Source information: This 362-nucleotide part of an RNA from Monosporascus sp. MC13-8B belongs to the Rfam family "Ascomycota telomerase RNA". Rfam links the family to the GO terms telomerase activity, telomere maintenance via telomerase and telomerase catalytic core complex. Lineage of the source: Eukaryota > Fungi > sordariomyceta > Xylariomycetidae > Monosporascus. Rfam 15.1 lists 475 matches to the family in 456 species. By type it is a non-coding RNA gene. The pairing is the family consensus, mapped onto this sequence. The family is grouped with related families in Rfam's "Telomerase clan".

RNA sequence: UUCAACAGAGAGCUCUUCUUUGAAGUGGGUUCGGCAGGAAUGUCAUGAUGGCAACCGCCGAUUUCGAUAAACAAAUUCGUCGACGACAGUUCUGGUUUAUUGGACGCUAAUGACGGGGUAAUCGGGGUCGUGGGUUGAGGUAAUCAGCAUGAAUUGUGUCGCCUCGCAAGACGCAGAGACCGGGACCCAUCUAGAGUUGGAGUCAAAGCUUAGAGCUUGUCCGGUCUUUGCGGAUUGCCUGUAGCAGCAUUCAUAACGAUAACCGAGCAAUUCAAUUUUUUGAUUUUGUCAAUCUGGAAGACUGGUCUGAAGACAAACCGUAGGCUGUUCUCCGCUCUGGUGGAGGACAGCCCCCUAUUUUU
Numbered sequence: 001u002u003c004a005a006c007a008g009a010g011a012g013c014u015c016u017u018c019u020u021u022g023a024a025g026u027g028g029g030u031u032c033g034g035c036a037g038g039a040a041u042g043u044c045a046u047g048a049u050g051g052c053a054a055c056c057g058c059c060g061a062u063u064u065c066g067a068u069a070a071a072c073a074a075a076u077u078c079g080u081c082g083a084c085g086a087c088a089g090u091u092c093u094g095g096u097u098u099a100u101u102g103g104a105c106g107c108u109a110a111u112g113a114c115g116g117g118g119u120a121a122u123c124g125g126g127g128u129c130g131u132g133g134g135u136u137g138a139g140g141u142a143a144u145c146a147g148c149a150u151g152a153a154u155u156g157u158g159u160c161g162c163c164u165c166g167c168a169a170g171a172c173g174c175a176g177a178g179a180c181c182g183g184g185a186c187c188c189a190u191c192u193a194g195a196g197u198u199g200g201a202g203u204c205a206a207a208g209c210u211u212a213g214a215g216c217u218u219g220u221c222c223g224g225u226c227u228u229u230g231c232g233g234a235u236u237g238c239c240u241g242u243a244g245c246a247g248c249a250u251u252c253a254u255a256a257c258g259a260u261a262a263c264c265g266a267g268c269a270a271u272u273c274a275a276u277u278u279u280u281u282g283a284u285u286u287u288g289u290c291a292a293u294c295u296g297g298a299a300g301a302c303u304g305g306u307c308u309g310a311a312g313a314c315a316a317a318c319c320g321u322a323g324g325c326u327g328u329u330c331u332c333c334g335c336u337c338u339g340g341u342g343g344a345g346g347a348c349a350g351c352c353c354c355c356u357a358u359u360u361u362u
Stems, first nucleotide, its partner, number of pairs: 184204003187200003206218004